[Rfam]
RNA sequence: CACGUGCUCCGGGGUCGGUGGGAAUCCGAACCGGCGGUGACAGUCCGCGAACCUCUCGUCCUGCGAGGGGUUGAUCCGGUGGAAAUCCGGGACCGACGGUGAUGCGACGAGAGUCGCUAGUCCGGAUGGGAGGCAGCACGAG
Numbered sequence: 001c002a003c004g005u006g007c008u009c010c011g012g013g014g015u016c017g018g019u020g021g022g023a024a025u026c027c028g029a030a031c032c033g034g035c036g037g038u039g040a041c042a043g044u045c046c047g048c049g050a051a052c053c054u055c056u057c058g059u060c061c062u063g064c065g066a067g068g069g070g071u072u073g074a075u076c077c078g079g080u081g082g083a084a085a086u087c088c089g090g091g092a093c094c095g096a097c098g099g100u101g102a103u104g105c106g107a108c109g110a111g112a113g114u115c116g117c118u119a120g121u122c123c124g125g126a127u128g129g130g131a132g133g134c135a136g137c138a139c140g141a142g
Base pairs, nucleotide, nucleotide: 003140004139005138006137007136008135009133010132016028017027018026032095033094034048035047036046037045043093044092051071052070053069075091076090077089078088079087097124098123099122